[Rfam]
Shown here is a 76-nucleotide RNA from Corvus brachyrhynchos, a member of the family "Small nucleolar RNA SNORD69". NCBI's taxonomy places the organism under Eukaryota, Craniata, Amniota, Neognathae, Corvus. It scores 58 bits against the family's covariance model. A reference for the family is Huttenhofer et al. (2001), "RNomics: an experimental approach that identifies 201 candidates for novel, small, non-messenger RNAs in mouse", EMBO J. snoRNA HBII-210 belongs to the C/D family of snoRNAs. It is the human orthologue of the mouse MBII-210 and is predicted to guide the 2'O-ribose methylation of large 28S rRNA on residue G4464.
RNA sequence: UACACAAAGCACAUGAUGACAAAACACUGGAACUGACUGUAUGAAGUACAUUCAAUCCAACACUGAGCUUUGUGUC
Numbered sequence: 001u002a003c004a005c006a007a008a009g010c011a012c013a014u015g016a017u018g019a020c021a022a023a024a025c026a027c028u029g030g031a032a033c034u035g036a037c038u039g040u041a042u043g044a045a046g047u048a049c050a051u052u053c054a055a056u057c058c059a060a061c062a063c064u065g066a067g068c069u070u071u072g073u074g075u076c
Base pairs, nucleotide, nucleotide: 002075003074004073005072006071007070008069009068010067